About this RNA
Shown here is a 79-nucleotide RNA from Corythaixoides concolor, a member of the family "Small nucleolar RNA SNORD72". About the family: snoRNA HBII-240 belongs to the CD family of snoRNAs. It is the human orthologue of the mouse MBII-240 and is predicted to guide 2'O-ribose methylation of the large 28S rRNA at residue U4590. NCBI's taxonomy places the organism under Eukaryota, Deuterostomia, Tetrapoda, Archelosauria, Corythaixoides. By type it is a C/D-box small nucleolar RNA. It scores 60 bits against the family's covariance model. For this family Rfam cites "RNomics: an experimental approach that identifies 201 candidates for novel, small, non-messenger RNAs in mouse" (Huttenhofer et al., EMBO J, 2001).

RNA sequence: AGCUUGUCAAUGAUGUUUCUUAUUAAAACCAUCUGAACGUAUGAACUCCAUAGUGAUUUCAGUGCAUUACUGAGAAGCU
Numbered sequence: 001a002g003c004u005u006g007u008c009a010a011u012g013a014u015g016u017u018u019c020u021u022a023u024u025a026a027a028a029c030c031a032u033c034u035g036a037a038c039g040u041a042u043g044a045a046c047u048c049c050a051u052a053g054u055g056a057u058u059u060c061a062g063u064g065c066a067u068u069a070c071u072g073a074g075a076a077g078c079u
Base pairs, nucleotide, nucleotide: 002078003077004076005075008074